[Rfam]
RNA: RprA RNA
RNA sequence: UUGUAAUUUCAACCUCAUGAUUUAUAUGUAGGCUUUUUUAUAAAGCAUACAUCCCAAAGAAUUGCUGUGUGUAGUCUUUGCCUGUCUUUUAAGACGGGCCUUUUUUUUC
Dot-bracket structure: (...............)..............((.((.....)).))................(((...)))........(((((((......)))))))..........